[Rfam]
RNA sequence: CUCUCGGUAGCCAAGUUGGUUUAAGGCGCAAGACUGUAAAUCUUGAGAUCGGGCGUUCGACUCGCCCCCGGGAGA
Numbered sequence: 001c002u003c004u005c006g007g008u009a010g011c012c013a014a015g016u017u018g019g020u021u022u023a024a025g026g027c028g029c030a031a032g033a034c035u036g037u038a039a040a041u042c043u044u045g046a047g048a049u050c051g052g053g054c055g056u057u058c059g060a061c062u063c064g065c066c067c068c069c070g071g072g073a074g075a
Base pairs, nucleotide, nucleotide: 001074002073003072004071005070006069007068010027011026012025029045030044031043032042033041051067052066053065054064055063
Notes: The family of this 75-nucleotide RNA sequence from Saccharomyces cerevisiae is "tRNA". Gene Ontology term of the family: triplet codon-amino acid adaptor activity. The sequence is in the family's curated seed alignment. It is annotated as a transfer RNA. Transfer RNA (tRNA) molecules are approximately 80 nucleotides in length. Their secondary structure includes four short double-helical elements and three loops (D, anti-codon, and T loops). Further hydrogen bonds mediate the characteristic L-shaped molecular structure. tRNAs have two regions of fundamental functional importance: the anti-codon, which is responsible for specific mRNA codon recognition, and the 3' end, to which the tRNAs corresponding amino acid is attached (by aminoacyl-tRNA synthetases). tRNAs cope with the degeneracy of the genetic code in two manners: having more than one tRNA (with a specific anti-codon) for a particular amino acid; and 'wobble' base-pairing, i.e. permitting non-standard base-pairing at the 3rd anti-codon position. The organism belongs to Saccharomyces, within Eukaryota.